The record is a 75-nucleotide RNA sequence from Amborella trichopoda, which matches "Plastid-ycf2 5UTR RNA" in Rfam. Pairs were carried over by alignment from the consensus structure, which was predicted with LocARNA. About the family: Plastid ycf2 is a non-coding RNA (ncRNA) recognised in plastids. It was found in the prime untranslated region (5UTR) of ycf2 genes, it presents a tRNA-like motif which suggests it can be involved in mRNA maturation, particularly involved in defining the precise 5' end of the transcript. Rfam classes the family as a cis-regulatory element.

RNA sequence: GUGCGUACAGCAGGAAUUGAACCUACGAAUUUACCAAUUAUGAGUCAGGUGCUUUAAUCAUUCAGUCGUGGAUGC
Numbered sequence: 001g002u003g004c005g006u007a008c009a010g011c012a013g014g015a016a017u018u019g020a021a022c023c024u025a026c027g028a029a030u031u032u033a034c035c036a037a038u039u040a041u042g043a044g045u046c047a048g049g050u051g052c053u054u055u056a057a058u059c060a061u062u063c064a065g066u067c068g069u070g071g072a073u074g075c
Base pairs, nucleotide, nucleotide: 003075004074005073006072008070010026012024013023014022040069041068042067044066045065048062049061050060051059